[Rfam]
RNA: Small nucleolar RNA SNORD113/SNORD114 family
Organism: Colobus angolensis
RNA sequence: UGAGUCAGUGAUGACUACUGGUAGUGUAUGAGUUAUAUAUGAUGAGUACAUAUCUGGAACUCUGAGGUCCAU
Numbered sequence: 001u002g003a004g005u006c007a008g009u010g011a012u013g014a015c016u017a018c019u020g021g022u023a024g025u026g027u028a029u030g031a032g033u034u035a036u037a038u039a040u041g042a043u044g045a046g047u048a049c050a051u052a053u054c055u056g057g058a059a060c061u062c063u064g065a066g067g068u069c070c071a072u
Stems, first nucleotide, its partner, number of pairs: 002070001004068003